[Rfam]
RNA sequence: GAGAAAUGAGGAUAUGAACGUUGUCUGACUGUUGCAGUGAAGACUUCAGAUCCAACUCUGAUCUCACACUGAAA
Numbered sequence: 001g002a003g004a005a006a007u008g009a010g011g012a013u014a015u016g017a018a019c020g021u022u023g024u025c026u027g028a029c030u031g032u033u034g035c036a037g038u039g040a041a042g043a044c045u046u047c048a049g050a051u052c053c054a055a056c057u058c059u060g061a062u063c064u065c066a067c068a069c070u071g072a073a074a
Stems, first nucleotide, its partner, number of pairs: 001065004

The record is a 74-nucleotide sequence from Heliornis fulica, which matches "Small nucleolar RNA SNORD19" in Rfam. The base pairs follow the family's consensus structure. The family is grouped with related families in Rfam's "SNORD19 clan".